[Rfam]
RNA sequence: GGGGGUAGUUGGGGGCUUGGUGCCUUCCAUGGACUUCAAAUCCAAUGGCUGGCCUUAGGGGUCAGCGGUAGGUUCGAUUCCUACAUACUCCC
Numbered sequence: 001g002g003g004g005g006u007a008g009u010u011g012g013g014g015g016c017u018u019g020g021u022g023c024c025u026u027c028c029a030u031g032g033a034c035u036u037c038a039a040a041u042c043c044a045a046u047g048g049c050u051g052g053c054c055u056u057a058g059g060g061g062u063c064a065g066c067g068g069u070a071g072g073u074u075c076g077a078u079u080c081c082u083a084c085a086u087a088c089u090c091c092c
Stems, first nucleotide, its partner, number of pairs: 001092007008084001011027006030044004048066005069083004

Rfam assigns this 92-nucleotide sequence from Sulfobacillus thermosulfidooxidans to the family "Selenocysteine transfer RNA".
The source organism's lineage runs through Bacteria, Bacillati, Bacillota, Sulfobacillus and Sulfobacillus thermosulfidooxidans.
Rfam links the family to the GO term triplet codon-amino acid adaptor activity.
Pairs were carried over by alignment from the consensus structure, which is taken from published work.